RNA sequence: CACUUGGAAUUACCCAUUUGGAAAACACGGUUGGAGCGGAGGAACCAUUUUUUGGGGCAAAUCUUCUAACGUUAUCUCUGUGAAAUAAACAGAUAACAAGAGAAGGACAUCUCUCAGUCCUAGCCCGUCAGCUAACUCCGUAGGCAUUGAGAGGAGACUGA
Numbered sequence: 001c002a003c004u005u006g007g008a009a010u011u012a013c014c015c016a017u018u019u020g021g022a023a024a025a026c027a028c029g030g031u032u033g034g035a036g037c038g039g040a041g042g043a044a045c046c047a048u049u050u051u052u053u054g055g056g057g058c059a060a061a062u063c064u065u066c067u068a069a070c071g072u073u074a075u076c077u078c079u080g081u082g083a084a085a086u087a088a089a090c091a092g093a094u095a096a097c098a099a100g101a102g103a104a105g106g107a108c109a110u111c112u113c114u115c116a117g118u119c120c121u122a123g124c125c126c127g128u129c130a131g132c133u134a135a136c137u138c139c140g141u142a143g144g145c146a147u148u149g150a151g152a153g154g155a156g157a158c159u160g161a
Base pairs, nucleotide, nucleotide: 011146013144014143018035019034036141037140038139039138040137041136046054047053055126056125057124063102064101065100105120106119107118108117

Record summary:
The family of this 161-nucleotide RNA sequence from Allocoleopsis franciscana is "c-di-AMP riboswitch aptamer (ydaO/yuaA leader)". It scores 68 bits against the family's covariance model. The pairing is the family consensus, mapped onto this sequence.